[Rfam]
RNA: Purine riboswitch aptamer
Organism: Streptococcus sp. X16XC17
RNA sequence: UCCCGAACAAAAUAAAAGACUUAUUUAUGUUGAGAAUUGGCUCAGCGUUUCUACAAGACACCGGAAUGUCUAACAAUAAGUGAGCAUGGAGCUUGC
Numbered sequence: 001u002c003c004c005g006a007a008c009a010a011a012a013u014a015a016a017a018g019a020c021u022u023a024u025u026u027a028u029g030u031u032g033a034g035a036a037u038u039g040g041c042u043c044a045g046c047g048u049u050u051c052u053a054c055a056a057g058a059c060a061c062c063g064g065a066a067u068g069u070c071u072a073a074c075a076a077u078a079a080g081u082g083a084g085c086a087u088g089g090a091g092c093u094u095g096c
Stems, first nucleotide, its partner, number of pairs: 019081007029046006056071005